[Rfam]
RNA sequence: ACUUUCUUGUCAGCCCAUAAGUCCUGCUUGCUCUAAUAUUUGUGUACGGCUAAUUAUGUGUACCCUAGUUGGUCCUAGAACGGCCUAAGGUAAAGGGGUUUUAGUCGGAAGGUUUGAGGACUUCUUCCUCGCGAAUCCGACACUACCCAGUCGUACAGACGGCUGGGUGUCUUUUGAAGAUUUCCCCUCUUUCACAAAA
Numbered sequence: 001a002c003u004u005u006c007u008u009g010u011c012a013g014c015c016c017a018u019a020a021g022u023c024c025u026g027c028u029u030g031c032u033c034u035a036a037u038a039u040u041u042g043u044g045u046a047c048g049g050c051u052a053a054u055u056a057u058g059u060g061u062a063c064c065c066u067a068g069u070u071g072g073u074c075c076u077a078g079a080a081c082g083g084c085c086u087a088a089g090g091u092a093a094a095g096g097g098g099u100u101u102u103a104g105u106c107g108g109a110a111g112g113u114u115u116g117a118g119g120a121c122u123u124c125u126u127c128c129u130c131g132c133g134a135a136u137c138c139g140a141c142a143c144u145a146c147c148c149a150g151u152c153g154u155a156c157a158g159a160c161g162g163c164u165g166g167g168u169g170u171c172u173u174u175u176g177a178a179g180a181u182u183u184c185c186c187c188u189c190u191u192u193c194a195c196a197a198a199a
Stems, first nucleotide, its partner, number of pairs: 039198005092192004096186003104141005113133001115131006143169001145168005
RNA: R2 RNA element
Organism: Agrilus planipennis